[Rfam]
RNA: Small nucleolar RNA SNORD94
Organism: Echeneis naucrates
RNA sequence: UCUGUGAUGAUGAGAUGCGCAGGGGUACGGACCUCAGCCGGUGAUGGGGGCUGAGUGCUGCUGCAGACUCUGCUCAGAGGACGAGUGGUUCACUGACAGACGGCAGCAGCACGAAACAGACGCCAGACUGAACAGA
Numbered sequence: 001u002c003u004g005u006g007a008u009g010a011u012g013a014g015a016u017g018c019g020c021a022g023g024g025g026u027a028c029g030g031a032c033c034u035c036a037g038c039c040g041g042u043g044a045u046g047g048g049g050g051c052u053g054a055g056u057g058c059u060g061c062u063g064c065a066g067a068c069u070c071u072g073c074u075c076a077g078a079g080g081a082c083g084a085g086u087g088g089u090u091c092a093c094u095g096a097c098a099g100a101c102g103g104c105a106g107c108a109g110c111a112c113g114a115a116a117c118a119g120a121c122g123c124c125a126g127a128c129u130g131a132a133c134a135g136a
Stems, first nucleotide, its partner, number of pairs: 001136005